TPP riboswitch aptamer (THI element): a 95-nucleotide sequence from Marivirga tractuosa. The base pairs follow the family's consensus structure, which is taken from published work. Rfam links the family to the GO term thiamine pyrophosphate binding. Lineage of the source: Bacteria > Bacteroidota > Cytophagia > Cytophagales > Marivirga tractuosa. Vitamin B(1) in its active form thiamin pyrophosphate (TPP) is an essential coenzyme that is synthesised by coupling of pyrimidine and thiazole moieties in bacteria. The match comes from Rfam's covariance-model search (65 bits).
[Rfam]
RNA sequence: AGCAUCAAUAAGGGGUGCCUUAAAAUAACGGGCUGAGAAUAUACCCUGAACCUGAUCUCGGUAAUGCGAGCGUAGGAAUUUUGAAUUUAAAUCAA
Numbered sequence: 001a002g003c004a005u006c007a008a009u010a011a012g013g014g015g016u017g018c019c020u021u022a023a024a025a026u027a028a029c030g031g032g033c034u035g036a037g038a039a040u041a042u043a044c045c046c047u048g049a050a051c052c053u054g055a056u057c058u059c060g061g062u063a064a065u066g067c068g069a070g071c072g073u074a075g076g077a078a079u080u081u082u083g084a085a086u087u088u089a090a091a092u093c094a095a
Base pairs, nucleotide, nucleotide: 006083007082008081010079011047012046013045014044016041017033018032019031020030051076052075053074054073057070058069059068060067
Dot-bracket structure: .....(((.(((((.(((((.........)))).......)..))))...((((..((((......))))..))))..).)))............